[Rfam]
Nucleotides: 206
Stems, first nucleotide, its partner, number of pairs: 015058005064104001066102002070098002128200013142161005
Number, partner (000 for none) and nucleotide at each position: 001000a002000c003000a004000c005000a006000g007000g008000a009000a010000g011000g012000g013000a014000g015058g016057u017056g018055g019054u020000c021000c022000g023000a024000a025000g026000a027000a028000u029000g030000a031000g032000u033000g034000c035000u036000u037000a038000u039000c040000g041000g042000a043000c044000g045000u046000g047000u048000g049000a050000g051000g052000u053000g054019g055018c056017u057016g058015c059000g060000g061000g062000c063000u064104g065000a066102g067101g068000c069000c070098c071097g072000u073000g074000c075000a076000c077000c078000a079000c080000g081000c082000c083000u084000g085000c086000g087000g088000c089000g090000c091000g092000u093000u094000g095000u096000u097071c098070g099000u100000a101067c102066c103000g104064c105000a106000g107000c108000c109000u110000u111000a112000a113000u114000c115000c116000a117000a118000c119000g120000c121000a122000g123000u124000c125000a126000c127000c128200c129199g130198a131197c132196c133195c134194g135193u136192g137191g138190g139189c140188u141000c142161g143160c144159c145158g146157g147000a148000u149000a150000c151000g152000u153000c154000c155000g156000g157146c158145c159144g160143g161142u162000a163000g164000c165000c166000g167000g168000a169000a170000g171000a172000c173000c174000u175000c176000u177000u178000u179000c180000c181000g182000g183000u184000u185000g186000g187000c188140a189139g190138c191137c192136c193135a194134c195133g196132g197131g198130u199129c200128g201000u202000c203000c204000g205000c206000g